[Rfam]
RNA: Plastid-psbM 3UTR RNA
Organism: Boswellia sacra
RNA sequence: GAUAGUAUGGUAGAAAGAUUCAUAUAUGAAUCUUUCUACCAUACUAUCUACUUUGAUUAUUGGAAUGUAGAAAGAUACAC
Number, nucleotide and partner (000 for none) at each position: 001g048002a047003u046004a045005g044006u043007a042008u041009g040010g039011u038012a037013g036014a035015a034016a033017g032018a031019u030020u029021c028022a027023u000024a000025u000026a000027u022028g021029a020030a019031u018032c017033u016034u015035u014036c013037u012038a011039c010040c009041a008042u007043a006044c005045u004046a003047u002048c001049u000050a000051c000052u000053u000054u000055g000056a000057u000058u000059a000060u000061u000062g000063g000064a000065a000066u000067g000068u000069a000070g000071a000072a000073a000074g000075a000076u000077a000078c000079a000080c000